Notes
This 75-nucleotide sequence from Algoriphagus machipongonensis belongs to the Rfam family "tRNA". It scores 57 bits against the family's covariance model. Gene Ontology term of the family: triplet codon-amino acid adaptor activity. Rfam describes the family as follows. Transfer RNA (tRNA) molecules are approximately 80 nucleotides in length. The family's consensus secondary structure is taken from published work. The literature on the family includes a 1993 paper in Trends Biochem Sci by Hou, "The tertiary structure of tRNA and the development of the genetic code".
RNA sequence: CGGGGUGUGGCGCAGUCCGGUUAGCGUACACGUCUGGGGGGCGUGGGGUCGUGGGUUCAAAUCCCGCCACCCCGA
Numbered sequence: 001c002g003g004g005g006u007g008u009g010g011c012g013c014a015g016u017c018c019g020g021u022u023a024g025c026g027u028a029c030a031c032g033u034c035u036g037g038g039g040g041g042c043g044u045g046g047g048g049u050c051g052u053g054g055g056u057u058c059a060a061a062u063c064c065c066g067c068c069a070c071c072c073c074g075a
Stems, first nucleotide, its partner, number of pairs: 001074007010027004029045005051067005